[Rfam]
RNA sequence: GGUCCGAUGCCACGUCGCCUAGAGCUUCAACAGCGUUGAUCGGCGAUGCUAUGAUUGGACCGAAAUCGAUUCCAUGUUUCGCACGUUGAUAGGAACCUGUGGAUCUGGUUCUUACACCGUUGGUCCACGGAGCCGUUUUCUGCGAUUACAUUU
Number, nucleotide and partner (000 for none) at each position: 001g000002g060003u059004c058005c057006g056007a055008u054009g052010c000011c000012a000013c048014g047015u046016c045017g044018c043019c000020u000021a040022g000023a000024g034025c033026u032027u000028c000029a000030a000031c000032a026033g025034c024035g000036u000037u000038g000039a000040u021041c000042g000043g018044c017045g016046a015047u014048g013049c000050u000051a000052u009053g000054a008055u007056u006057g005058g004059a003060c002061c000062g000063a000064a000065a000066u000067c000068g000069a000070u000071u000072c000073c000074a000075u000076g000077u000078u000079u145080c144081g143082c142083a141084c000085g000086u000087u000088g000089a000090u000091a000092g134093g133094a000095a000096c000097c130098u129099g128100u000101g126102g125103a124104u123105c122106u000107g000108g000109u000110u000111c000112u000113u000114a000115c000116a000117c000118c000119g000120u000121u000122g105123g104124u103125c102126c101127a000128c099129g098130g097131a000132g000133c093134c092135g000136u000137u000138u000139u000140c000141u083142g082143c081144g080145a079146u000147u000148a000149c000150a000151u000152u000153u000